[Rfam]
A member of the RNA family "Vault RNA" from Aotus nancymaae, 102 nucleotides long. Rfam describes the family as follows. This family of RNAs are found as part of the enigmatic vault ribonucleoprotein complex. The family's RNA type in Rfam is non-coding RNA gene. The match comes from Rfam's covariance-model search (47 bits). On this family, see Stadler et al., Mol Biol Evol 2009: "Evolution of Vault RNAs".

RNA sequence: GGGUCAGCUUUGGCUCAAGUAGUUACUUCCUUGUGCCAGACUUUCCGUCUGCCUAACCCCUGUGCUAGGGUUCAAGAUCUGCCAGUGCUUUCUGACCUUUUA
Numbered sequence: 001g002g003g004u005c006a007g008c009u010u011u012g013g014c015u016c017a018a019g020u021a022g023u024u025a026c027u028u029c030c031u032u033g034u035g036c037c038a039g040a041c042u043u044u045c046c047g048u049c050u051g052c053c054u055a056a057c058c059c060c061u062g063u064g065c066u067a068g069g070g071u072u073c074a075a076g077a078u079c080u081g082c083c084a085g086u087g088c089u090u091u092c093u094g095a096c097c098u099u100u101u102a
Stems, first nucleotide, its partner, number of pairs: 002097006013086003019082004027076002